A member of the RNA family "RtT RNA" from Chimaeribacter arupi, 127 nucleotides long. A search with the family's covariance model found it, with a score of 100 bits. By type it is a cis-regulatory element. This family represents a bacterial cis-regulatory element known as RtT RNA. The exact function of RtT is unknown although it is thought that it may be involved in changing the cellular response in relation to amino acid starvation.
RNA sequence: GAGUUGCCCAUGCGGGGAAGGACGAGAACCUUCGACAAGGUUCGGGCGAGCGAACGCGAGCAACGUUGCGCAGCAACGGCCCGAAGGGUGAGGAACGAAGUGACGAAUCAUCCUUCCCCCACCACCC
Numbered sequence: 001g002a003g004u005u006g007c008c009c010a011u012g013c014g015g016g017g018a019a020g021g022a023c024g025a026g027a028a029c030c031u032u033c034g035a036c037a038a039g040g041u042u043c044g045g046g047c048g049a050g051c052g053a054a055c056g057c058g059a060g061c062a063a064c065g066u067u068g069c070g071c072a073g074c075a076a077c078g079g080c081c082c083g084a085a086g087g088g089u090g091a092g093g094a095a096c097g098a099a100g101u102g103a104c105g106a107a108u109c110a111u112c113c114u115u116c117c118c119c120c121a122c123c124a125c126c127c
Stems, first nucleotide, its partner, number of pairs: 015118007033090002036087001041085004047058002064078006